Shown here is a 453-nucleotide part of an RNA from Erpetoichthys calabaricus, a member of the family "Eukaryotic large subunit ribosomal RNA". The match comes from Rfam's covariance-model search (2760 bits). The family's consensus secondary structure is taken from published work.

RNA sequence: AAGUCGGCAAGCCGGAUCCGUAACUUCGGGAUAAGGAUUGGCUCUAAGGGCUGGGUCGGUCGGGCUGGGGAGCGAAGCGGGUCUGGGCCCGCGCCCGCGGCUUGGGGAGCCGCCGUCCUGUCGCCCUCCCUCCCUUCCCGGUGCUGGAAGGGAGGUUAGCGGUCCACCCCUCCGCCCCGCGGCCCGUGUCCGUCGGGGGGGGCGCUUCGGUGCCUCCCCCGCGGCUCGGUGUCCUCGCGGGACGGUGUCUGCUGGCGCCCGGAAGGCGGGCCGGCGGGGGGUGGGAUGUGGCUGGCGGUGGCGGCGGUGACUCUUGUCGUGAGCCGGACCCUUCCUGUGGAUCUCCCCGGCUGCGGUGCCCGUCCGGGUCCCCCGGCGGGGCGGGGCGGGGGCCCCCCGGGCGGGUGUCCUCGGCUGGCGCCUAGCAGCUGGCUUAGAACUGGUGCGGACCAG
Number, nucleotide and partner (000 for none) at each position: 001a000002a000003g000004u000005c000006g000007g000008c000009a000010a000011g000012c000013c000014g000015g039016a038017u037018c036019c035020g000021u000022a000023a000024c029025u000026u000027c000028g000029g024030g000031a000032u000033a000034a000035g019036g018037a017038u016039u015040g441041g440042c000043u438044c437045u436046a435047a434048g433049g430050g429051c428052u427053g426054g000055g419056u418057c417058g416059g415060u414061c413062g412063g411064g000065c000066u000067g000068g000069g000070g000071a000072g000073c000074g000075a000076a000077g000078c000079g000080g000081g000082u000083c000084u000085g000086g000087g000088c000089c000090c000091g000092c000093g000094c000095c000096c000097g000098c000099g000100g000101c000102u000103u000104g000105g000106g000107g000108a000109g000110c000111c000112g000113c000114c000115g000116u000117c000118c000119u000120g000121u000122c000123g000124c000125c000126c000127u000128c000129c000130c000131u000132c000133c000134c000135u000136u000137c000138c000139c000140g000141g000142u000143g000144c000145u000146g000147g000148a000149a000150g000151g000152g000153a000154g000155g000156u000157u000158a000159g000160c000161g000162g000163u000164c000165c000166a000167c000168c000169c000170c000171u000172c000173c000174g000175c000176c000177c000178c000179g000180c000181g000182g000183c000184c000185c000186g000187u000188g000189u000190c000191c000192g000193u000194c000195g000196g000197g000198g000199g000200g000201g000202g000203c000204g000205c000206u000207u000208c000209g000210g000211u000212g000213c000214c000215u000216c000217c000218c000219c000220c000221g000222c000223g000224g000225c000226u000227c000228g000229g000230u000231g000232u000233c000234c000235u000236c000237g000238c000239g000240g000241g000242a000243c000244g000245g000246u000247g000248u000249c000250u000251g000252c000253u000254g000255g000256c000257g000258c000259c000260c000261g000262g000263a000264a000265g000266g000267c000268g000269g000270g000271c000272c000273g000274g000275c000276g000277g000278g000279g000280g000281g000282u000283g000284g000285g000286a000287u000288g000289u000290g000291g000292c000293u000294g000295g000296c000297g000298g000299u000300g000301g000302c000303g000304g000305c000306g000307g000308u000309g000310a000311c000312u000313c000314u000315u000316g000317u000318c000319g000320u000321g000322a000323g000324c000325c000326g000327g000328a000329c000330c000331c000332u000333u000334c000335c000336u000337g000338u000339g000340g000341a000342u000343c000344u000345c000346c000347c000348c000349g000350g000351c000352u000353g000354c000355g000356g000357u000358g000359c000360c000361c000362g000363u000364c000365c000366g000367g000368g000369u000370c000371c000372c000373c000374c000375g000376g000377c000378g000379g000380g000381g000382c000383g000384g000385g000386g000387c000388g000389g000390g000391g000392g000393c000394c000395c000396c000397c000398c000399g000400g000401g000402c000403g000404g000405g000406u000407g000408u000409c000410c000411u063412c062413g061414g060415c059416u058417g057418g056419c055420g000421c000422c000423u000424a000425g000426c053427a052428g051429c050430u049431g000432g000433c048434u047435u046436a045437g044438a043439a000440c041441u040442g446443g000444u000445g000446c442447g000448g000449a000450c000451c000452a000453g000
Rfam 15.1 lists 107,465 matches to the family in 2,616 species.